Rfam assigns this 123-nucleotide sequence from Hominibacterium faecale to the family "Molybdenum/Tungsten riboswitch aptamer (Moco RNA motif)".
[Rfam]
RNA sequence: GAUAAGAUAGAGAUCCGAGUCCCGAAUUCCUUCGCUGCGGAACGCAUGGAAUCGGGACCAAUGGGUUCACUGCGGAAACGCGUGGGCCUCCCGUGUUUGGAAAGGAUGGAUGAUCUGGCAGCC
Numbered sequence: 001g002a003u004a005a006g007a008u009a010g011a012g013a014u015c016c017g018a019g020u021c022c023c024g025a026a027u028u029c030c031u032u033c034g035c036u037g038c039g040g041a042a043c044g045c046a047u048g049g050a051a052u053c054g055g056g057a058c059c060a061a062u063g064g065g066u067u068c069a070c071u072g073c074g075g076a077a078a079c080g081c082g083u084g085g086g087c088c089u090c091c092c093g094u095g096u097u098u099g100g101a102a103a104g105g106a107u108g109g110a111u112g113a114u115c116u117g118g119c120a121g122c123c
Stems, first nucleotide, its partner, number of pairs: 003117002006114001013107004019058006026052005034045002063089008072081003090100002
Dot-bracket structure: ..((.(......((((..((((((.(((((...((........))..)))))))))))....((((((((.(((....)))))))))))((.......))...))))......).))......